[Rfam]
RNA sequence: GGUUUAAUUACCUAACUUUGAGGUAAUUGAAAGUUUUGGCACAGAGAUUCUUCUACUGUGGCUUGAAGUCAAAUUUUGGAACGUCCUGCUACUUAGUGGGAUAAC
Numbered sequence: 001g002g003u004u005u006a007a008u009u010a011c012c013u014a015a016c017u018u019u020g021a022g023g024u025a026a027u028u029g030a031a032a033g034u035u036u037u038g039g040c041a042c043a044g045a046g047a048u049u050c051u052u053c054u055a056c057u058g059u060g061g062c063u064u065g066a067a068g069u070c071a072a073a074u075u076u077u078g079g080a081a082c083g084u085c086c087u088g089c090u091a092c093u094u095a096g097u098g099g100g101a102u103a104a105c
Base pairs, nucleotide, nucleotide: 003031004030005029006028007027008026009025010024011023012022034068035067036066037065039062040061083102084101085100086099087098088097089096
Dot-bracket structure: ..((((((((((.........))))))))))..((((.((....................))..))))..............(((((((......)))))))...
This 105-nucleotide RNA sequence from Acanthocheilonema viteae belongs to the Rfam family "SL1 RNA". For this family Rfam cites "Trans-spliced leader RNA, 5S-rRNA genes and novel variant orphan spliced-leader of the lymphatic filarial nematode Wuchereria bancrofti, and a sensitive polymerase chain reaction based detection assay" (Dassanayake et al., Gene, 2001). Rfam classes the family as a non-coding RNA gene. The base pairs follow the family's consensus structure, which is taken from published work. About the family: This family represents the SL1 RNA. SL1 is commonly located in the spacer region between 5S-rRNA genes where it is involved in trans-splicing. Rfam links the family to the GO term mRNA trans splicing, via spliceosome. NCBI's taxonomy places the organism under Eukaryota, Eumetazoa, Spiruromorpha, Onchocercidae, Acanthocheilonema.